A member of the RNA family "DUF3800-IX RNA", 70 nucleotides long. Pairs were carried over by alignment from the consensus structure, which is taken from published work. Actinobacteria, Firmicutes (1 example), Nitrospirae, Proteobacteria, Verrucomicrobia (1 example).
RNA sequence: UCCUUGUACCCGAAUUGUCACCGUAUGGUGUGCGUGUCUGGAAAACUUCAGACUAGGGUACAGUGACGAU
Numbered sequence: 001u002c003c004u005u006g007u008a009c010c011c012g013a014a015u016u017g018u019c020a021c022c023g024u025a026u027g028g029u030g031u032g033c034g035u036g037u038c039u040g041g042a043a044a045a046c047u048u049c050a051g052a053c054u055a056g057g058g059u060a061c062a063g064u065g066a067c068g069a070u
Stems, first nucleotide, its partner, number of pairs: 001066002004063003008059004016034003019030004036053005